Shown here is a 79-nucleotide sequence from Brassica carinata, a member of the family "Small nucleolar RNA Z266". It is annotated as a C/D-box small nucleolar RNA. On this family, see Chen et al., Nucleic Acids Res 2003: "The high diversity of snoRNAs in plants: identification and comparative study of 120 snoRNA genes from Oryza sativa". Pairs were carried over by alignment from the consensus structure, which was predicted with PFOLD. It scores 47 bits against the family's covariance model.
RNA sequence: GGAUUGGGUGAAUGAUGAUUCAAUUAGAUGUGCGAAUGGUUUCAUUAUGAGCACACAACACUAAAAGAUCGUCCAGCUC
Numbered sequence: 001g002g003a004u005u006g007g008g009u010g011a012a013u014g015a016u017g018a019u020u021c022a023a024u025u026a027g028a029u030g031u032g033c034g035a036a037u038g039g040u041u042u043c044a045u046u047a048u049g050a051g052c053a054c055a056c057a058a059c060a061c062u063a064a065a066a067g068a069u070c071g072u073c074c075a076g077c078u079c
Stems, first nucleotide, its partner, number of pairs: 001079002004076007